[Rfam]
About this RNA:
Rfam assigns this 172-nucleotide RNA sequence from bacterium 1xD8-6 to the family "Group II catalytic intron D1-D4-3".

RNA sequence: UCCAUCGCGAGGUGGAAUCUGAAGGAAGGUGCAGGCAAAUCUCUGGUCUGACGAACAGAAAUCACAUCAGGCUAUAGUUAGGGAUAAGGUUGCUUUACAAACUAAAGUCCAAUAACUACUCGGAACUAACUGUAGUAAAUGUGGCAGAUAUAUGGAGAGAAAGUGACGUGUG
Numbered sequence: 001u002c003c004a005u006c007g008c009g010a011g012g013u014g015g016a017a018u019c020u021g022a023a024g025g026a027a028g029g030u031g032c033a034g035g036c037a038a039a040u041c042u043c044u045g046g047u048c049u050g051a052c053g054a055a056c057a058g059a060a061a062u063c064a065c066a067u068c069a070g071g072c073u074a075u076a077g078u079u080a081g082g083g084a085u086a087a088g089g090u091u092g093c094u095u096u097a098c099a100a101a102c103u104a105a106a107g108u109c110c111a112a113u114a115a116c117u118a119c120u121c122g123g124a125a126c127u128a129a130c131u132g133u134a135g136u137a138a139a140u141g142u143g144g145c146a147g148a149u150a151u152a153u154g155g156a157g158a159g160a161a162a163g164u165g166a167c168g169u170g171u172g
Stems, first nucleotide, its partner, number of pairs: 001016006029171004035164002040158006046149005062144005071136003075132007082110004088103004

The literature on the family includes a 2001 paper in EMBO J by Chu et al., "Control of branch-site choice by a group II intron".